[Rfam]
mir-9195 microRNA precursor family: an 87-nucleotide RNA from Myotis davidii. Rfam 15.1 lists 438 matches to the family in 7 species. The match comes from Rfam's covariance-model search (91 bits). Gene Ontology terms of the family: RISC complex and miRNA-mediated post-transcriptional gene silencing. The organism belongs to Myotis, within Eukaryota.
RNA sequence: AGAGGCCCUCUACAGCUGGGGUGGAACGCUUGCUUUGUCGCCGUGGCAACAAAGCAAGCAUUCCACCAGGCUGCUCAUGCUGCCCAC
Numbered sequence: 001a002g003a004g005g006c007c008c009u010c011u012a013c014a015g016c017u018g019g020g021g022u023g024g025a026a027c028g029c030u031u032g033c034u035u036u037g038u039c040g041c042c043g044u045g046g047c048a049a050c051a052a053a054g055c056a057a058g059c060a061u062u063c064c065a066c067c068a069g070g071c072u073g074c075u076c077a078u079g080c081u082g083c084c085c086a087c
Stems, first nucleotide, its partner, number of pairs: 004084003013073005020067007028059006037050002040047002